[Rfam]
The family of this 256-nucleotide sequence from Glycine max is "Group I catalytic intron".
A reference for the family is Cech (1990), "Self-splicing of group I introns", Annu Rev Biochem.
A search with the family's covariance model found it, with a score of 110 bits.
Gene Ontology term of the family: Group I intron splicing.
The base pairs follow the family's consensus structure, which is taken from published work.
RNA sequence: CUACGGACUUAAUUGGAUUGAGUCUUGGUAUGGAAACUUACCAAGUGAGAACUUUCAAAUUCAGAGAAACCCUGAAAUUCACAAAGGGCAAUCCUGAGCCAAAUCCUGUUUUCUGAAAGCAAAGAAAAGUUCAUAAAGUUAUAAUAAAAAAGGGAUAGGUGCAGAGACUCAAUGGAAGCUGUUCUAACAAAAGGAGUUGACGAUUUUUCCUUUUUGCAUUAGGAAAAGAAUAGAAUCCUCUCCACCACAGUCCUUG
Numbered sequence: 001c002u003a004c005g006g007a008c009u010u011a012a013u014u015g016g017a018u019u020g021a022g023u024c025u026u027g028g029u030a031u032g033g034a035a036a037c038u039u040a041c042c043a044a045g046u047g048a049g050a051a052c053u054u055u056c057a058a059a060u061u062c063a064g065a066g067a068a069a070c071c072c073u074g075a076a077a078u079u080c081a082c083a084a085a086g087g088g089c090a091a092u093c094c095u096g097a098g099c100c101a102a103a104u105c106c107u108g109u110u111u112u113c114u115g116a117a118a119g120c121a122a123a124g125a126a127a128a129g130u131u132c133a134u135a136a137a138g139u140u141a142u143a144a145u146a147a148a149a150a151a152g153g154g155a156u157a158g159g160u161g162c163a164g165a166g167a168c169u170c171a172a173u174g175g176a177a178g179c180u181g182u183u184c185u186a187a188c189a190a191a192a193g194g195a196g197u198u199g200a201c202g203a204u205u206u207u208u209c210c211u212u213u214u215u216g217c218a219u220u221a222g223g224a225a226a227a228g229a230a231u232a233g234a235a236u237c238c239u240c241u242c243c244a245c246c247a248c249a250g251u252c253c254u255u256g
Stems, first nucleotide, its partner, number of pairs: 005024001007023007030038001050180001052178003056174002061097004066092001070088004098160002104154003111148002164238001166237002169234002182224006248256002